The family of this 66-nucleotide RNA from Pongo pygmaeus is "mir-297 microRNA precursor family".
The family's consensus secondary structure was predicted with RNAalifold.
RNA sequence: UGUAUGUAUGUGUGCAUGUGCAUGUAUGUGUACAUACAUAUAUAUAUAUUACGUACCCAUAUAUCA
Numbered sequence: 001u002g003u004a005u006g007u008a009u010g011u012g013u014g015c016a017u018g019u020g021c022a023u024g025u026a027u028g029u030g031u032a033c034a035u036a037c038a039u040a041u042a043u044a045u046a047u048a049u050u051a052c053g054u055a056c057c058c059a060u061a062u063a064u065c066a
Base pairs, nucleotide, nucleotide: 005063006062007061008060009059010058012056013055016054017053018052019051020050024049025048026047027046028045029044030043031042032041